[Rfam]
RNA sequence: CUUCUGCGGUGAUGAAUUAUAAAUAAAGAGUUAAUUACACAUGUCAGACUUCAGAGAUUUUAUAUCGAUGAGAAGACACACUCAAGACUCUGAGCAGAAA
Numbered sequence: 001c002u003u004c005u006g007c008g009g010u011g012a013u014g015a016a017u018u019a020u021a022a023a024u025a026a027a028g029a030g031u032u033a034a035u036u037a038c039a040c041a042u043g044u045c046a047g048a049c050u051u052c053a054g055a056g057a058u059u060u061u062a063u064a065u066c067g068a069u070g071a072g073a074a075g076a077c078a079c080a081c082u083c084a085a086g087a088c089u090c091u092g093a094g095c096a097g098a099a100a
Stems, first nucleotide, its partner, number of pairs: 002099006056066003
RNA: Small nucleolar RNA R64/Z200 family
Organism: Corymbia citriodora